[Rfam]
RNA sequence: UUUCCACAGCCCCGACCACUCCACACUAAUGGCCGGCAAGCUGUGAAAAGGAGGAAAAAGCAACCCUUAGGCUCAGGGGUGCGGCAGUGUGGAGACCUGUCGUAAUGCGGCGCGUCCCGAAGCGGGCGGCCGUGAGGGCGUUUCAUGCGAAGGCAGAACGCCCGGAGCUGCGCAACAUGGCA
Numbered sequence: 001u002u003u004c005c006a007c008a009g010c011c012c013c014g015a016c017c018a019c020u021c022c023a024c025a026c027u028a029a030u031g032g033c034c035g036g037c038a039a040g041c042u043g044u045g046a047a048a049a050g051g052a053g054g055a056a057a058a059a060g061c062a063a064c065c066c067u068u069a070g071g072c073u074c075a076g077g078g079g080u081g082c083g084g085c086a087g088u089g090u091g092g093a094g095a096c097c098u099g100u101c102g103u104a105a106u107g108c109g110g111c112g113c114g115u116c117c118c119g120a121a122g123c124g125g126g127c128g129g130c131c132g133u134g135a136g137g138g139c140g141u142u143u144c145a146u147g148c149g150a151a152g153g154c155a156g157a158a159c160g161c162c163c164g165g166a167g168c169u170g171c172g173c174a175a176c177a178u179g180g181c182a
Stems, first nucleotide, its partner, number of pairs: 012036003016032003064079004070169005080104008089096002107133005113128003136163008146155003
RNA: malK-I RNA